Manganese Mn2+ riboswitch aptamer (yybP-ykoY): a 179-nucleotide sequence from Hydrogenophaga crocea. Rfam 15.1 lists 1,126 matches to the family in 1,062 species. NCBI's taxonomy places the organism under Bacteria, Pseudomonadati, Pseudomonadota, Betaproteobacteria, Hydrogenophaga. A search with the family's covariance model found it, with a score of 107 bits. Rfam describes the family as follows. This RNA was originally discovered in E. coli during a large scale screen and was named SraF. The family was later found to exist upstream of related families of protein genes in many bacteria, including the the yybP and ykoK genes in B. subtilis. The specific functions of these proteins are unknown, but this structured RNA element may be involved in their genetic regulation as a riboswitch.
RNA sequence: UCACCCGUCAUUGGGGAGUAGCCGCCCGGCGUUCCAAGCGCCGGGGUUCGCGUCAACAGACUUGGCCCGCAGGCCAUGGCGCGAACAGCCUCCAGCCUGGCAAGACCUUUGACCACACCGCCUCCGCAUGUGCCGGGGAGGCGGCGUGGUCUUUUGGUUUUUCGCCGGCCAUCGGAGUU
Numbered sequence: 001u002c003a004c005c006c007g008u009c010a011u012u013g014g015g016g017a018g019u020a021g022c023c024g025c026c027c028g029g030c031g032u033u034c035c036a037a038g039c040g041c042c043g044g045g046g047u048u049c050g051c052g053u054c055a056a057c058a059g060a061c062u063u064g065g066c067c068c069g070c071a072g073g074c075c076a077u078g079g080c081g082c083g084a085a086c087a088g089c090c091u092c093c094a095g096c097c098u099g100g101c102a103a104g105a106c107c108u109u110u111g112a113c114c115a116c117a118c119c120g121c122c123u124c125c126g127c128a129u130g131u132g133c134c135g136g137g138g139a140g141g142c143g144g145c146g147u148g149g150u151c152u153u154u155u156g157g158u159u160u161u162u163c164g165c166c167g168g169c170c171a172u173c174g175g176a177g178u179u
Stems, first nucleotide, its partner, number of pairs: 026044003046086010063076005088178002091175002094172001